Nucleotides: 080
Base pairs, nucleotide, nucleotide: 001067002066003065004064005062006061007060008059011033012032013031014030015029016028017027018026039057040056041055042054043053048079049078050077051076052075
Number, partner (000 for none) and nucleotide at each position: 001067g002066c003065c004064a005062c006061g007060c008059c009000u010000a011033g012032c013031u014030a015029u016028c017027g018026g019000c020000u021000g022000a023000u024000c025000c026018c027017c028016g029015a030014u031013g032012g033011c034000g035000a036000a037000u038000a039057c040056c041055g042054g043053g044000a045000c046000a047000c048079c049078c050077u051076g052075a053043c054042c055041c056040g057039g058000c059008g060007g061006c062005g063000c064004u065003g066002g067001u068000u069000u070000u071000c072000g073000u074000u075052u076051c077050a078049g079048g080000u